[Rfam]
Nucleotides: 365
Stems, first nucleotide, its partner, number of pairs: 004365003007361001008315007016035006040359003044356005049234005054071006077229003081225001082103006104122001105120006123224002126165004134156004141150003171222002173218003187206008238254003258290007291300003318343010
Number, partner (000 for none) and nucleotide at each position: 001000a002000u003000u004365u005364u006363u007361a008315g009314g010313u011312a012311a013310u014309u015000g016035c017034g018033g019032u020031u021030c022000a023000u024000c025000u026000u027000g028000a029000u030021g031020a032019g033018c034017u035016g036000a037000g038000g039000a040359a041358a042357g043000u044356c045355c046354a047353u048352g049234c050233u051232c052231a053230c054071a055070c056069a057068a058067c059066c060000u061000g062000c063000g064000a065000u066059g067058g068057u069056u070055g071054u072000a073000g074000u075000g076000u077229u078228c079227g080000u081225g082103c083102u084101u085100a086099g087098c088000g089000a090000a091000a092000u093000c094000a095000u096000a097000a098087g099086c100085u101084a102083a103082g104122g105120c106119a107118c108117u109116a110115u111000g112000u113000a114000a115110a116109u117108a118107g119106u120105g121000a122104c123224g124223g125000c126165a127164g128163a129162g130000g131000a132000a133000u134156a135155g136154g137153c138000u139000a140000a141150g142149g143148a144000g145000a146000a147000a148143u149142c150141u151000a152000u153137g154136u155135c156134u157000u158000a159000g160000u161000a162129c163128u164127c165126u166000a167000u168000a169000a170000a171222g172221u173218g174217c175216c176000a177000u178000a179000g180000a181000g182000a183000c184000g185000a186000g187206u188205c189204a190203a191202c192201u193200u194199u195000g196000a197000a198000a199194g200193a201192a202191g203190u204189u205188g206187a207000g208000u209000g210000g211000a212000a213000c214000g215000c216175g217174g218173u219000a220000a221172a222171c223124c224123c225081c226000u227079c228078g229077a230053g231052u232051g233050a234049g235000c236000a237000a238254c239253c240252c241000a242000a243000a244000u245000u246000a247000u248000g249000g250000u251000a252240g253239g254238g255000g256000c257000g258290c259289u260288c261287u262286u263285u264284u265000u266000a267000g268000u269000a270000g271000g272000a273000a274000u275000u276000g277000a278000a279000c280000g281000a282000a283000a284264g285263a286262a287261a288260g289259a290258g291300g292299c293298a294000g295000a296000a297000a298293u299292g300291u301000a302000g303000a304000u305000a306000g307000a308000u309014a310013a311012u312011u313010a314009c315008c316000c317000a318343u319342u320341a321340u322339u323338u324337u325336u326335g327334u328000a329000a330000c331000c332000u333000g334327g335326c336325a337324a338323a339322a340321a341320u342319a343318a344000g345000g346000a347000c348000a349000g350000a351000a352048c353047a354046u355045g356044g357042c358041u359040u360000a361007u362000a363006g364005a365004a
Record summary: A member of the RNA family "Bacterial RNase P class B" from Catellicoccus marimammalium, 365 nucleotides long. Rfam describes the family as follows. Ribonuclease P (RNase P) is a ubiquitous endoribonuclease, found in archaea, bacteria and eukarya as well as chloroplasts and mitochondria. The family's RNA type in Rfam is ribozyme. Lineage of the source: Bacteria > Bacillati > Bacilli > Lactobacillales > Catellicoccus marimammalium. The literature on the family includes a 1998 paper in Annu Rev Biochem by Frank and Pace, "Ribonuclease P: unity and diversity in a tRNA processing ribozyme". The family is grouped with related families in Rfam's "RNaseP clan".